[Rfam]
RNA sequence: GGGGUCGAUUUUGGUUUCGACUGUGUACAUUGCGCCAGGGGAAGCGUGCCGGUGCAGGCUAGAGACCACCGUAAGCGUCGUAGCAACUAAAAUAAACGCAGAGAAAAACUCUCAGCGUGACUACGCCCUCGCUGCCUAAUUUCAGCGACGCGUGUCUGUCAGCCUAGAUUUCGUUCCUGAUCUAGAAUCUGGCAUCGACUAAGGAACUUGCCGCAUAGUUGUGUUAUUAGGGCUAUGUGGGACGCACACUGAUAACUGGGCUUAUCAUCUGGAGGAGUUCGUCCCAUCCAGAAAGUCAAGUAAAGAUUCCGCGCGAACUGCGCACGGAGAAGCCCUGGCAAGGUGGCGCAGGACCCGGGUUCAAUCCCCGGCGGCUCCACAA
Numbered sequence: 001g002g003g004g005u006c007g008a009u010u011u012u013g014g015u016u017u018c019g020a021c022u023g024u025g026u027a028c029a030u031u032g033c034g035c036c037a038g039g040g041g042a043a044g045c046g047u048g049c050c051g052g053u054g055c056a057g058g059c060u061a062g063a064g065a066c067c068a069c070c071g072u073a074a075g076c077g078u079c080g081u082a083g084c085a086a087c088u089a090a091a092a093u094a095a096a097c098g099c100a101g102a103g104a105a106a107a108a109c110u111c112u113c114a115g116c117g118u119g120a121c122u123a124c125g126c127c128c129u130c131g132c133u134g135c136c137u138a139a140u141u142u143c144a145g146c147g148a149c150g151c152g153u154g155u156c157u158g159u160c161a162g163c164c165u166a167g168a169u170u171u172c173g174u175u176c177c178u179g180a181u182c183u184a185g186a187a188u189c190u191g192g193c194a195u196c197g198a199c200u201a202a203g204g205a206a207c208u209u210g211c212c213g214c215a216u217a218g219u220u221g222u223g224u225u226a227u228u229a230g231g232g233c234u235a236u237g238u239g240g241g242a243c244g245c246a247c248a249c250u251g252a253u254a255a256c257u258g259g260g261c262u263u264a265u266c267a268u269c270u271g272g273a274g275g276a277g278u279u280c281g282u283c284c285c286a287u288c289c290a291g292a293a294a295g296u297c298a299a300g301u302a303a304a305g306a307u308u309c310c311g312c313g314c315g316a317a318c319u320g321c322g323c324a325c326g327g328a329g330a331a332g333c334c335c336u337g338g339c340a341a342g343g344u345g346g347c348g349c350a351g352g353a354c355c356c357g358g359g360u361u362c363a364a365u366c367c368c369c370g371g372c373g374g375c376u377c378c379a380c381a382a
Stems, first nucleotide, its partner, number of pairs: 001378007021351006030342001034339007045326005050071005058084004127150001129148006157194006164185007173207004178203001211240009222254005256300002259297005265291001270286003277318004281312002355371005
Background: The family of this 382-nucleotide RNA from Corynebacterium sp. sy039 is "transfer-messenger RNA". Rfam's curators write: Bacterial tmRNA, also known as 10Sa RNA or SsrA, is named for its dual tRNA and mRNA-like properties. Its role is to liberate the mRNA from a stalled ribosome. To accomplish this part of the tmRNA is used as a reading frame that ends in a translation stop signal. It scores 133 bits against the family's covariance model.